[Rfam]
RNA sequence: ACCAUCCUUGUCUUGGGGUUGCGCUACUGUUCAAUGAACGUCUAGUGAGGACAGUACUGCUAACACCUACACAACACAUUGGCAUCCUUGGGGGGCUUGCUCCCCACGUGAGGUGCAAUUUUUGGAAAA
Numbered sequence: 001a002c003c004a005u006c007c008u009u010g011u012c013u014u015g016g017g018g019u020u021g022c023g024c025u026a027c028u029g030u031u032c033a034a035u036g037a038a039c040g041u042c043u044a045g046u047g048a049g050g051a052c053a054g055u056a057c058u059g060c061u062a063a064c065a066c067c068u069a070c071a072c073a074a075c076a077c078a079u080u081g082g083c084a085u086c087c088u089u090g091g092g093g094g095g096c097u098u099g100c101u102c103c104c105c106a107c108g109u110g111a112g113g114u115g116c117a118a119u120u121u122u123u124g125g126a127a128a129a
Stems, first nucleotide, its partner, number of pairs: 006018004021060003026055007038046002082116005087110001091105005